[Rfam]
RNA: int-alpA RNA
Nucleotides: 068
Base pairs, nucleotide, nucleotide: 001055002054003053004052005051006050007049008048011022012021013020028045029044030043031042032041036068037067038066039065040064
Number, partner (000 for none) and nucleotide at each position: 001055u002054c003053c004052g005051g006050g007049g008048a009000u010000a011022g012021g013020c014000a015000g016000g017000c018000c019000a020013g021012c022011c023000g024000a025000a026000a027000g028045c029044g030043g031042g032041a033000g034000a035000a036068c037067c038066c039065c040064u041032u042031c043030c044029c045028g046000u047000u048008u049007u050006c051005c052004c053003g054002g055001a056000u057000a058000a059000a060000c061000c062000a063000u064040a065039g066038g067037g068036g